About this RNA
A member of the RNA family "Group II catalytic intron D1-D4-3" from Prevotella brunnea, 173 nucleotides long. The organism belongs to Prevotella, within Bacteria. It scores 111 bits against the family's covariance model. The base pairs follow the family's consensus structure.
RNA sequence: CGAGUGGUGACGCUCGGGAGAGAAGAAGCAAUAGCGAAAUCGUGGCCUGACGAACAGAAACAUGGUACUAAGGCGCAUCAAGCGGACAAGCUGGCUAAAGACAGUGAAGCUCCUAAAGGCAACCGUAACCUUGUUGCGUAAACCAUGCAGGUAAACGAGGAAAGAUGUAUGGC
Numbered sequence: 001c002g003a004g005u006g007g008u009g010a011c012g013c014u015c016g017g018g019a020g021a022g023a024a025g026a027a028g029c030a031a032u033a034g035c036g037a038a039a040u041c042g043u044g045g046c047c048u049g050a051c052g053a054a055c056a057g058a059a060a061c062a063u064g065g066u067a068c069u070a071a072g073g074c075g076c077a078u079c080a081a082g083c084g085g086a087c088a089a090g091c092u093g094g095c096u097a098a099a100g101a102c103a104g105u106g107a108a109g110c111u112c113c114u115a116a117a118g119g120c121a122a123c124c125g126u127a128a129c130c131u132u133g134u135u136g137c138g139u140a141a142a143c144c145a146u147g148c149a150g151g152u153a154a155a156c157g158a159g160g161a162a163a164g165a166u167g168u169a170u171g172g173c
Base pairs, nucleotide, nucleotide: 001016002015003014004013005012006011028173029172031170032169035164040158041157042156043155045152046151047150048149049148061147062146063145064144065143066142073139074138075137077135079133080132081131082130084113085112086111087109090105091104092103093102